[Rfam]
RNA: Selenocysteine transfer RNA
Organism: Chiloscyllium punctatum
RNA sequence: GCUUGGGUGAGUCCUAGUGGUCUAGGAUGCUGGCUUCGAACCUGCAGCGGUCUAGCGACAGAGUGGCUCAAUUCUGUCUUCCAGUC
Numbered sequence: 001g002c003u004u005g006g007g008u009g010a011g012u013c014c015u016a017g018u019g020g021u022c023u024a025g026g027a028u029g030c031u032g033g034c035u036u037c038g039a040a041c042c043u044g045c046a047g048c049g050g051u052c053u054a055g056c057g058a059c060a061g062a063g064u065g066g067c068u069c070a071a072u073u074c075u076g077u078c079u080u081c082c083a084g085u086c
Base pairs, nucleotide, nucleotide: 001086003084004083005082006081007080009078012027013026014025015024016023017022028046029045030044032042033041048061050059051058052057063077064076065075066074